[Rfam]
RNA sequence: UAAUUUUCAGUCACAGUGUUGACUAAGAUUU
Numbered sequence: 001u002a003a004u005u006u007u008c009a010g011u012c013a014c015a016g017u018g019u020u021g022a023c024u025a026a027g028a029u030u031u
Stems, first nucleotide, its partner, number of pairs: 002030006009024005014018001
A member of the RNA family "Iron response element II" from Tauraco erythrolophus, 31 nucleotides long. It scores 32 bits against the family's covariance model. A reference for the family is Cmejla et al. (2006), "A novel iron responsive element in the 3'UTR of human MRCKalpha", Biochem Biophys Res Commun. IRE, TFRC, SLC40A1, SDHB, SLC11A2, CDC42BPA, ACO2, ALAS2_H.SAPIENS, CDC14A, EPAS1, ALAS2, qoxD, Hao1, NDUFS1, transferrin, Aconitate. Rfam 15.1 lists 5,197 matches to the family in 722 species.